[Rfam]
RNA sequence: AACCCAACCCUUUACUCGGAUCGUCCGGCACGUUCCUGCCGGUGAAGGAGAGCACA
Numbered sequence: 001a002a003c004c005c006a007a008c009c010c011u012u013u014a015c016u017c018g019g020a021u022c023g024u025c026c027g028g029c030a031c032g033u034u035c036c037u038g039c040c041g042g043u044g045a046a047g048g049a050g051a052g053c054a055c056a
Base pairs, nucleotide, nucleotide: 008048009047011046012045013044014043025042026041027040028039029038030037
RNA: msiK RNA